[Rfam]
Rfam assigns this 128-nucleotide RNA sequence from Rhinopithecus roxellana to the family "Small nucleolar RNA SNORA24". The base pairs follow the family's consensus structure, which was predicted with RNAfold. It is annotated as an H/ACA-box small nucleolar RNA. ACA24 is a member of the H/ACA class of snoRNA that guide the sites of modification of uridines to pseudouridines.
RNA sequence: CUUAAAAUGUCUGUUUAUGUCAGCUGUGGCAGUCUCCCUUCCUAGCCAUGGAAGAGCAUAUUCUUAUUUAUUGGCAAAGCUGUCACCAUUUAAUUGGUAUCAGAUUCUGACUUGCACAAGUAACAUUA
Number, nucleotide and partner (000 for none) at each position: 001c050002u000003u048004a000005a000006a000007a000008u000009g000010u000011c000012u000013g037014u000015u000016u000017a000018u031019g030020u029021c028022a000023g000024c000025u000026g000027u000028g021029g020030c019031a018032g000033u000034c000035u000036c000037c013038c000039u000040u000041c000042c000043u000044a000045g000046c000047c000048a003049u000050g001051g000052a000053a000054g000055a000056g000057c000058a000059u000060a000061u000062u000063c000064u000065u125066a000067u123068u122069u000070a000071u119072u118073g117074g115075c114076a113077a112078a000079g000080c103081u102082g101083u000084c000085a098086c097087c096088a095089u000090u000091u000092a000093a000094u000095u088096g087097g086098u085099a000100u000101c082102a081103g080104a000105u000106u000107c000108u000109g000110a000111c000112u077113u076114g075115c074116a000117c073118a072119a071120g000121u000122a068123a067124c000125a065126u000127u000128a000
Rfam links the family to the GO terms nucleolus and RNA processing. A search with the family's covariance model found it, with a score of 110 bits.